[Rfam]
RNA: U11 spliceosomal RNA
RNA sequence: UAAAAGGGUCUCUGCCGUCACUGGCACAUCUGGUCUCUGGCCAGGUGCGGAAUCACUAUCAAGAGAUUUCGGAGACAUAAUUUUUAUAAACUGGUGGCUGUGAGUGUCCUUUAUGACCUUGCGCCCUG
Numbered sequence: 001u002a003a004a005a006g007g008g009u010c011u012c013u014g015c016c017g018u019c020a021c022u023g024g025c026a027c028a029u030c031u032g033g034u035c036u037c038u039g040g041c042c043a044g045g046u047g048c049g050g051a052a053u054c055a056c057u058a059u060c061a062a063g064a065g066a067u068u069u070c071g072g073a074g075a076c077a078u079a080a081u082u083u084u085u086a087u088a089a090a091c092u093g094g095u096g097g098c099u100g101u102g103a104g105u106g107u108c109c110u111u112u113a114u115g116a117c118c119u120u121g122c123g124c125c126c127u128g
Base pairs, nucleotide, nucleotide: 008076009075010074011073012072013026014025015024016023017022027047028046029045030044031043032042033041034040048071049070050069051068052067053066054065094126096125097124098123100122101121102120103119104118106117107116108115